uxuA RNA: an 87-nucleotide sequence from Vibrio metoecus.

RNA sequence: UAACCACCUUGCCAGCGCAAGCUGGCACUGAUCAGCGCGGUUGUUCUUGCAACCGCAUAAUAAGAAGUCGUUACGCACUGAGCUUGA
Numbered sequence: 001u002a003a004c005c006a007c008c009u010u011g012c013c014a015g016c017g018c019a020a021g022c023u024g025g026c027a028c029u030g031a032u033c034a035g036c037g038c039g040g041u042u043g044u045u046c047u048u049g050c051a052a053c054c055g056c057a058u059a060a061u062a063a064g065a066a067g068u069c070g071u072u073a074c075g076c077a078c079u080g081a082g083c084u085u086g087a
Stems, first nucleotide, its partner, number of pairs: 011026006037056008